RNA sequence: UCCUUCCUUGUCUUGGGGAGCAGAAAUGUUCAAUGAACGUCUAGUGAGGACAUUGCUGCUGACACCAAUGAUAUAAUAACCCCCGCUCGCUGAUCUCUGCGAUUAGCGUUCGGAAUUUUUGGAAAAGACUCCCUUACUUCAUAGGGAGUCGU
Number, nucleotide and partner (000 for none) at each position: 001u000002c000003c000004u000005u019006c018007c017008u016009u015010g000011u000012c000013u000014u000015g009016g008017g007018g006019a005020g059021c058022a057023g056024a000025a054026a053027u052028g051029u050030u049031c048032a000033a000034u000035g000036a000037a045038c044039g000040u000041c000042u000043a000044g038045u037046g000047a000048g031049g030050a029051c028052a027053u026054u025055g000056c023057u022058g021059c020060u000061g000062a000063c000064a000065c000066c000067a000068a000069u000070g000071a000072u000073a000074u000075a000076a000077u000078a000079a000080c000081c000082c000083c113084c112085g111086c000087u000088c000089g000090c106091u105092g104093a103094u102095c101096u000097c000098u000099g000100c000101g095102a094103u093104u092105a091106g090107c000108g000109u000110u000111c085112g084113g083114a000115a000116u000117u000118u000119u000120u000121g000122g000123a000124a000125a000126a000127g000128a000129c000130u000131c000132c000133c000134u000135u000136a000137c000138u000139u000140c000141a000142u000143a000144g000145g000146g000147a000148g000149u000150c000151g000152u000
A member of the RNA family "U4atac minor spliceosomal RNA" from Drosophila mojavensis, 152 nucleotides long. On this family, see Lorkovic et al., RNA 2005: "Evolutionary conservation of minor U12-type spliceosome between plants and humans". Taxonomically the source falls in mojavensis species complex (Eukaryota, Panarthropoda, Arthropoda, Acalyptratae). The family has 61 seed sequences and 1,648 matches in Rfam 15.1.